Source information
The family of this 98-nucleotide sequence from Firmicutes bacterium CAG:137 is "THF (Tetrahydrofolate) riboswitch aptamer". It scores 68 bits against the family's covariance model. Rfam links the family to the GO term tetrahydrofolate metabolic process. The family's consensus secondary structure is taken from published work. Rfam's curators write: Tetrahydrofolate (THF) riboswitch was first reported for Ames et al. as an RNA motif in 5' untranslated (5'-UTR)regions of folate transport and biosynthesis genes in Firmicutes genomes. The organism belongs to Bacillota, within Bacteria.
RNA sequence: CAGGGAGUAGGAAAUUUCGCGUUAAGUACCGUUCGGAUGGGAGGUUGCCAGCGGGCGAAGGGGCUGUGGCCCCGCGAUGAACUUUCCGCAACCGCCUG
Numbered sequence: 001c002a003g004g005g006a007g008u009a010g011g012a013a014a015u016u017u018c019g020c021g022u023u024a025a026g027u028a029c030c031g032u033u034c035g036g037a038u039g040g041g042a043g044g045u046u047g048c049c050a051g052c053g054g055g056c057g058a059a060g061g062g063g064c065u066g067u068g069g070c071c072c073c074g075c076g077a078u079g080a081a082c083u084u085u086c087c088g089c090a091a092c093c094g095c096c097u098g
Stems, first nucleotide, its partner, number of pairs: 003097003010087005016081004020076003026056002029054005035049002040093002044089001060073004